[Rfam]
RNA sequence: GUGCUGAAGCGGGGGUGCCGGCGGUCAUGGCCGGCUGAGAGAGUCCCUUGGAACCUGACCCGGGUCGUGCCGGCGUAGGGAGGCUUCGAGACGGCGAGG
Numbered sequence: 001g002u003g004c005u006g007a008a009g010c011g012g013g014g015g016u017g018c019c020g021g022c023g024g025u026c027a028u029g030g031c032c033g034g035c036u037g038a039g040a041g042a043g044u045c046c047c048u049u050g051g052a053a054c055c056u057g058a059c060c061c062g063g064g065u066c067g068u069g070c071c072g073g074c075g076u077a078g079g080g081a082g083g084c085u086u087c088g089a090g091a092c093g094g095c096g097a098g099g
Stems, first nucleotide, its partner, number of pairs: 006087005011048004016042001017035005054079004060073004